[Rfam]
RNA sequence: AUUCCGGUCAUCGGGGAGUAGCUUCCUUCCGUCGAAUAGAAGGGCUUGCAUCAACAUACUUGACCCGUGGUCGUGGUGCAAGGAGUUCGUGCCUGGCAAGACCUUUGACCACAUUGUCUCCGGAAGGGCGGGGAGAAGCCUGGUCUCGCUUCUUGUCCGGCCUGGAGCGU
Numbered sequence: 001a002u003u004c005c006g007g008u009c010a011u012c013g014g015g016g017a018g019u020a021g022c023u024u025c026c027u028u029c030c031g032u033c034g035a036a037u038a039g040a041a042g043g044g045c046u047u048g049c050a051u052c053a054a055c056a057u058a059c060u061u062g063a064c065c066c067g068u069g070g071u072c073g074u075g076g077u078g079c080a081a082g083g084a085g086u087u088c089g090u091g092c093c094u095g096g097c098a099a100g101a102c103c104u105u106u107g108a109c110c111a112c113a114u115u116g117u118c119u120c121c122g123g124a125a126g127g128g129c130g131g132g133g134a135g136a137a138g139c140c141u142g143g144u145c146u147c148g149c150u151u152c153u154u155g156u157c158c159g160g161c162c163u164g165g166a167g168c169g170u
Stems, first nucleotide, its partner, number of pairs: 026042002045082009061073005088169003
RNA: Manganese Mn2+ riboswitch aptamer (yybP-ykoY)
Organism: Nitrosospira multiformis